[Rfam]
This 225-nucleotide RNA sequence from Streptomyces turgidiscabies belongs to the Rfam family "Streptomyces sRNA 4677". The pairing is the family consensus, mapped onto this sequence. Located in the intergenic region between anti-sigma factor SCO4677 gene and a putative regulatory protein gene SCO4676. scr4677 expression requires the SCO4677 activity and scr4677 sRNA itself seem to affect the levels of the SCO4676-associated transcripts. A reference for the family is Hindra et al. (2014), "Complex intra-operonic dynamics mediated by a small RNA in Streptomyces coelicolor", PLoS One.
RNA sequence: GGGUCCGGCGGGCCACUGACCUCCUGAAAGAACCGGGGGAAAGUACUACCCGCCCACCCUCCCUCCCCGGUCGCGAAGCACGCGUUCACCCGUCCGAGUGACCGGCUUGCAGGCGCGGGAUGCGGGCGGUUACGUUCGCCGCGACAACCACAGACAAAUGCGGCCCCCGGCCGGGAUUCCCGUCCCGAUCGAGGGCCUGACCGAUCAGGAAGCGAUACCUUCCCA
Numbered sequence: 001g002g003g004u005c006c007g008g009c010g011g012g013c014c015a016c017u018g019a020c021c022u023c024c025u026g027a028a029a030g031a032a033c034c035g036g037g038g039g040a041a042a043g044u045a046c047u048a049c050c051c052g053c054c055c056a057c058c059c060u061c062c063c064u065c066c067c068c069g070g071u072c073g074c075g076a077a078g079c080a081c082g083c084g085u086u087c088a089c090c091c092g093u094c095c096g097a098g099u100g101a102c103c104g105g106c107u108u109g110c111a112g113g114c115g116c117g118g119g120a121u122g123c124g125g126g127c128g129g130u131u132a133c134g135u136u137c138g139c140c141g142c143g144a145c146a147a148c149c150a151c152a153g154a155c156a157a158a159u160g161c162g163g164c165c166c167c168c169g170g171c172c173g174g175g176a177u178u179c180c181c182g183u184c185c186c187g188a189u190c191g192a193g194g195g196c197c198u199g200a201c202c203g204a205u206c207a208g209g210a211a212g213c214g215a216u217a218c219c220u221u222c223c224c225a
Stems, first nucleotide, its partner, number of pairs: 007205001009203002015071004086101004091096001115139004162197005168191002173186004208223005